[Rfam]
RNA sequence: GUUGCUUCAUAUGGUGAACUAUCUCCUUGUAAAUGAGAAGUGUUCUAGUUUCCGAAGCAUAAAUUAUAAACAAAAAGCCAGUUUUAAACAACACGUUGAAUGGAUUAAAUUUCUCCAUUCUGAUCGUAAUCACUUGGGAAUUAA
Numbered sequence: 001g002u003u004g005c006u007u008c009a010u011a012u013g014g015u016g017a018a019c020u021a022u023c024u025c026c027u028u029g030u031a032a033a034u035g036a037g038a039a040g041u042g043u044u045c046u047a048g049u050u051u052c053c054g055a056a057g058c059a060u061a062a063a064u065u066a067u068a069a070a071c072a073a074a075a076a077g078c079c080a081g082u083u084u085u086a087a088a089c090a091a092c093a094c095g096u097u098g099a100a101u102g103g104a105u106u107a108a109a110u111u112u113c114u115c116c117a118u119u120c121u122g123a124u125c126g127u128a129a130u131c132a133c134u135u136g137g138g139a140a141u142u143a144a
Stems, first nucleotide, its partner, number of pairs: 003059006016045004020040001022038003078137004083132001090124001092122001095119001097117002

Background: The record is a 144-nucleotide RNA from Spinacia oleracea, which matches "small nucleolar RNA snoR137" in Rfam. Its family is annotated with RNA processing and nucleolus in the Gene Ontology. Lineage of the source: Eukaryota > Tracheophyta > Gunneridae > Chenopodioideae > Spinacia. For this family Rfam cites "Mining small RNA sequencing data: a new approach to identify small nucleolar RNAs in Arabidopsis" (Chen and Wu, Nucleic Acids Res, 2009).